[Rfam]
RNA sequence: GUACGAAAAAGGCAAACCCAUUGAAAAGUGGGGACGCAAAGCUACAGGGGUUUCACCGAGGGAAUAGACCUUGGUAAGCCAGCCAGCUACCGAA
Numbered sequence: 001g002u003a004c005g006a007a008a009a010a011g012g013c014a015a016a017c018c019c020a021u022u023g024a025a026a027a028g029u030g031g032g033g034a035c036g037c038a039a040a041g042c043u044a045c046a047g048g049g050g051u052u053u054c055a056c057c058g059a060g061g062g063a064a065u066a067g068a069c070c071u072u073g074g075u076a077a078g079c080c081a082g083c084c085a086g087c088u089a090c091c092g093a094a
Stems, first nucleotide, its partner, number of pairs: 012037002017032006040088004047084002049080003056074006